The family of this 86-nucleotide sequence from Paenibacillus thalictri is "BsrC".
Rfam 15.1 lists 572 matches to the family in 553 species.
RNA sequence: UAUACCAAAACGACAAAAGCCCUGCCUCUCAAUUGUCCUUGCAGCUCCUAGACUGCGCCAGAAUGAAUCAGUAGUACCAUAAAACA
Numbered sequence: 001u002a003u004a005c006c007a008a009a010a011c012g013a014c015a016a017a018a019g020c021c022c023u024g025c026c027u028c029u030c031a032a033u034u035g036u037c038c039u040u041g042c043a044g045c046u047c048c049u050a051g052a053c054u055g056c057g058c059c060a061g062a063a064u065g066a067a068u069c070a071g072u073a074g075u076a077c078c079a080u081a082a083a084a085c086a
Base pairs, nucleotide, nucleotide: 033066034065035064038061039060040057041056042055043054044053046051
Dot-bracket structure: ................................(((..(((((((.(....).)))))..))..)))....................

It scores 70 bits against the family's covariance model.